A member of the RNA family "c-di-GMP-I-GGC riboswitch aptamer" from Paenibacillus sp. FSL R7-0331, 80 nucleotides long. Its Rfam clan is "c-di-GMP_I riboswitch clan". Pairs were carried over by alignment from the consensus structure, which is taken from published work.
[Rfam]
RNA sequence: AACGACAAAGGCAAACCUACUCGAAAGAUAGGGACGCAAAGCUAUAGGGCCUCUCCCAAGUGGCAGCCUGGCUACCGAAA
Number, nucleotide and partner (000 for none) at each position: 001a000002a000003c077004g076005a000006c000007a000008a000009a000010g000011g037012c036013a000014a000015a000016c032017c031018u030019a029020c000021u028022c027023g000024a000025a000026a000027g022028a021029u019030a018031g017032g016033g000034a000035c066036g012037c011038a000039a000040a073041g072042c071043u070044a000045u000046a069047g068048g067049g064050c063051c062052u000053c000054u000055c000056c000057c000058a000059a000060g000061u000062g051063g050064c049065a000066g035067c048068c047069u046070g043071g042072c041073u040074a000075c000076c004077g003078a000079a000080a000